[Rfam]
RNA sequence: GGGGGCGAGGGACUGGAGAGAAAGGCCGUUGCUGACGGUCCCCUCCCCGGGGGCUGGCUUUCCUCUGGUCCUUCCCUCC
Numbered sequence: 001g002g003g004g005g006c007g008a009g010g011g012a013c014u015g016g017a018g019a020g021a022a023a024g025g026c027c028g029u030u031g032c033u034g035a036c037g038g039u040c041c042c043c044u045c046c047c048c049g050g051g052g053g054c055u056g057g058c059u060u061u062c063c064u065c066u067g068g069u070c071c072u073u074c075c076c077u078c079c
Base pairs, nucleotide, nucleotide: 004076005075007074008073009072010071011070013068014067015066016065017064018063020062021061022060023059024058026056028054029053030052032050033049034048037046038045
Dot-bracket structure: ...((.(((((.((((((.(((((.(.(((.(((..((......)).))).))).).))))))))))).)))))))...